[Rfam]
A member of the RNA family "Small nucleolar RNA SNORA46" from Phyllostomus discolor, 138 nucleotides long.
It is annotated as an H/ACA-box small nucleolar RNA.
The family has 22 seed sequences and 582 matches in Rfam 15.1.
About the family: ACA46 is a member of the H/ACA class of snoRNA that guide the sites of modification of uridines to pseudouridines.
RNA sequence: AGCACUAUAUUUAAACCUAUGGAUGGGAGUUUUCCCCGUUCUAGGUUACGCUGUAGUGCAAAAGAAUUCCUGGCUCUUUCUGGUGCCCAGCGGACAUUGUGCCAUUCUGCUGUUGCUAGAUAGAGUUAAGGAACAUAG
Numbered sequence: 001a002g003c004a005c006u007a008u009a010u011u012u013a014a015a016c017c018u019a020u021g022g023a024u025g026g027g028a029g030u031u032u033u034c035c036c037c038g039u040u041c042u043a044g045g046u047u048a049c050g051c052u053g054u055a056g057u058g059c060a061a062a063a064g065a066a067u068u069c070c071u072g073g074c075u076c077u078u079u080c081u082g083g084u085g086c087c088c089a090g091c092g093g094a095c096a097u098u099g100u101g102c103c104a105u106u107c108u109g110c111u112g113u114u115g116c117u118a119g120a121u122a123g124a125g126u127u128a129a130g131g132a133a134c135a136u137a138g
Base pairs, nucleotide, nucleotide: 002059003058004057005056006055007054008053009052014047015046016045017044021041022040023039024038025037026036027035067133068132069131070130071129072127073126074125075124076123077122079120080119085116086115088112089111090110091109093107094106